[Rfam]
The family of this 179-nucleotide RNA from Niallia endozanthoxylica is "Lysine riboswitch aptamer". NCBI's taxonomy places the organism under Bacteria, Bacillati, Caryophanales, Bacillaceae, Niallia. The family's consensus secondary structure is taken from published work. The match comes from Rfam's covariance-model search (134 bits). Riboswitches are metabolite binding domains within certain messenger RNAs that serve as precision sensors for their corresponding targets.
Nucleotides: 179
Stems, first nucleotide, its partner, number of pairs: 006174006016083006023076002032068007087116011117143011145164007
Number, partner (000 for none) and nucleotide at each position: 001000a002000g003000u004000g005000a006174a007173g008172g009171u010170a011169g012000a013000g014000g015000u016083g017082c018081g019080g020079a021078c022000u023076u024075c025000a026000u027000g028000a029000g030000u031000a032068a033067a034066a035065a036064u037063c038062c039000g040000g041000a042000g043000a044000a045000g046000g047000a048000u049000g050000a051000g052000c053000u054000u055000c056000u057000g058000g059000g060000a061000a062038g063037g064036a065035u066034u067033u068032u069000a070000a071000a072000a073000g074000g075024g076023a077000c078021g079020u080019c081018u082017g083016c084000c085000g086000a087116a088115g089114u090113a091112g092111a093110g094109a095108a096107g097106g098000a099000c100000u101000c102000a103000u104000u105000g106097c107096u108095u109094u110093c111092u112091u113090u114089g115088c116087u117143g118142g119141u120140c121139c122138u123137g124136u125135a126134u127133u128000u129000a130000a131000u132000a133127a134126a135125u136124g137123c138122a139121g140120g141119a142118u143117u144000g145164u146163c147162a148161a149160g150159a151158c152000c153000u154000a155000u156000c157000a158151g159150u160149c161148u162147u163146g164145g165000a166000g167000a168000g169011c170010u171009a172008u173007c174006u175000c176000a177000u178000u179000u